[Rfam]
RNA sequence: CGUCAGGACACUCCUCCCUAACGAGGAGCUUCUAUCUGGAAGGAUAGCCAAU
Numbered sequence: 001c002g003u004c005a006g007g008a009c010a011c012u013c014c015u016c017c018c019u020a021a022c023g024a025g026g027a028g029c030u031u032c033u034a035u036c037u038g039g040a041a042g043g044a045u046a047g048c049c050a051a052u
Stems, first nucleotide, its partner, number of pairs: 011028006032047006

Rfam assigns this 52-nucleotide RNA sequence from Rhizobium album to the family "serC leader". The pairing is the family consensus, mapped onto this sequence. Rfam describes the family as follows. This family is a putative regulatory RNA structure that is found upstream of the serC-serA operon in some alpha-proteobacteria. The final stem of the structure overlaps the ribosome binding site of the serC reading frame. Rfam links the family to the GO term regulation of gene expression. A search with the family's covariance model found it, with a score of 61 bits. The family's RNA type in Rfam is cis-regulatory leader.